[Rfam]
RNA sequence: ACUUACCUUCGGGGCGAGGUGCAAUUCCUCACCGGCGGUGAUCGGCGGCCGGGAGCCGCGAGCCUCUGACGAAGAGGCCGCGUCCGGUACGCCGUCAGUCCGUGACCCGUCAUUGCACCUACCGGUCAACCGGUGGGCGUGAUGCGGUGGACCCGGUGCGAAUCCGGGACCGACAGUAACAGUCUGGAUGGGAGAAGGGAGCG
Number, nucleotide and partner (000 for none) at each position: 001a000002c000003u201004u200005a000006c198007c197008u196009u195010c194011g000012g000013g000014g000015c000016g000017a029018g028019g027020u000021g000022c000023a000024a000025u000026u000027c019028c018029u017030c000031a183032c182033c172034g171035g059036c058037g057038g056039u000040g000041a000042u000043c000044g000045g000046c000047g000048g000049c000050c000051g000052g000053g000054a000055g170056c038057c037058g036059c035060g000061a000062g148063c147064c146065u000066c000067u000068g000069a000070c000071g000072a000073a000074g000075a000076g000077g000078c000079c000080g000081c000082g000083u000084c000085c000086g000087g000088u000089a000090c000091g000092c000093c000094g000095u000096c000097a000098g000099u000100c000101c000102g000103u000104g000105a000106c000107c000108c000109g000110u000111c000112a000113u000114u000115g000116c000117a000118c000119c000120u000121a000122c000123c000124g000125g000126u000127c000128a000129a000130c000131c000132g000133g000134u000135g000136g000137g000138c000139g000140u000141g000142a000143u000144g000145c000146g064147g063148u062149g000150g000151a000152c168153c167154c166155g165156g164157u000158g000159c000160g000161a000162a000163u000164c156165c155166g154167g153168g152169a000170c055171c034172g033173a000174c186175a185176g184177u000178a000179a000180c000181a000182g032183u031184c176185u175186g174187g000188a000189u000190g000191g000192g000193a000194g010195a009196a008197g007198g006199g000200a004201g003202c000203g000
The record is a 203-nucleotide RNA from Cohnella xylanilytica, which matches "FMN riboswitch aptamer (RFN element)" in Rfam. The RFN element is a highly conserved domain that is found frequently in the 5'-untranslated regions of prokaryotic mRNAs that encode for flavin mononucleotide (FMN) biosynthesis and transport proteins. Pairs were carried over by alignment from the consensus structure, which is taken from published work. NCBI's taxonomy places the organism under Bacteria, Bacillati, Bacillota, Caryophanales, Cohnella. The match comes from Rfam's covariance-model search (94 bits).